[Rfam]
RNA: S-element
RNA sequence: CGUCAAGAGUCUUUGGAACCGAUCUGGUGAGCAAAUUUCUUUUGCCUGCUGAAAGGUAAGAGACGAUG
Dot-bracket structure: ........((((((...(((..(.(((.(.(((((.....))))).).))).).))).))))))....